[Rfam]
RNA sequence: GGCGUCUGGAGCAGGAGUCGGCUGCGAUCGGUGAUGACCUCGCCGAUGUGGUACGGCAGGCCGCAGUUCGCGAACGAGACGUAGUCGCCGCGCUCGAGCACGACGAUCUCGGCGAACUCGUCGAGACGGCGUGCGCGCGCCGCGACCGACGCUCCGCCCGCGACCCCUC
Numbered sequence: 001g002g003c004g005u006c007u008g009g010a011g012c013a014g015g016a017g018u019c020g021g022c023u024g025c026g027a028u029c030g031g032u033g034a035u036g037a038c039c040u041c042g043c044c045g046a047u048g049u050g051g052u053a054c055g056g057c058a059g060g061c062c063g064c065a066g067u068u069c070g071c072g073a074a075c076g077a078g079a080c081g082u083a084g085u086c087g088c089c090g091c092g093c094u095c096g097a098g099c100a101c102g103a104c105g106a107u108c109u110c111g112g113c114g115a116a117c118u119c120g121u122c123g124a125g126a127c128g129g130c131g132u133g134c135g136c137g138c139g140c141c142g143c144g145a146c147c148g149a150c151g152c153u154c155c156g157c158c159c160g161c162g163a164c165c166c167c168u169c
Base pairs, nucleotide, nucleotide: 001167002166004164005163006162008161011025012024013023014022032056035053036052038050040048060071061070076154077153084147086144087143088142092140093139095137096136099133101131102130104128105127107125110123111122112121113120114119
Vibrio RNA AS7: a 169-nucleotide RNA sequence from Agromyces kandeliae. The base pairs follow the family's consensus structure, which was predicted with RNAfold. By type it is an antisense RNA. On this family, see Liu et al., Nucleic Acids Res 2009: "Experimental discovery of sRNAs in Vibrio cholerae by direct cloning, 5S/tRNA depletion and parallel sequencing". Rfam's curators write: Identified by direct cloning an parallel sequencing experiments with 5S/tRNA depletion. Confirmed by Northern blot.